RNA sequence: GGGGUACACUUAGAACCCCCGUACGGUCUGUGUUAAUAGUGCUGUCUUUGGCCGGGCAGCAUGGUUAGGUCAAGC
Dot-bracket structure: (((((.........))))).............(((((.(((((((((......))))))))).))))).......
Numbered sequence: 001g002g003g004g005u006a007c008a009c010u011u012a013g014a015a016c017c018c019c020c021g022u023a024c025g026g027u028c029u030g031u032g033u034u035a036a037u038a039g040u041g042c043u044g045u046c047u048u049u050g051g052c053c054g055g056g057c058a059g060c061a062u063g064g065u066u067a068g069g070u071c072a073a074g075c
Stems, first nucleotide, its partner, number of pairs: 001019005033068005039062009

Annotation: This 75-nucleotide sequence from Prevotella denticola belongs to the Rfam family "L13-Bacteroidia ribosomal protein leader". Rfam's curators put it in the seed alignment. The base pairs follow the family's consensus structure, which is taken from published work. NCBI's taxonomy places the organism under Bacteria, Bacteroidota, Prevotellaceae, Prevotella, Prevotella denticola. On this family, see Eckert and Weinberg, BMC Microbiol 2020: "Discovery of 20 novel ribosomal leader candidates in bacteria and archaea".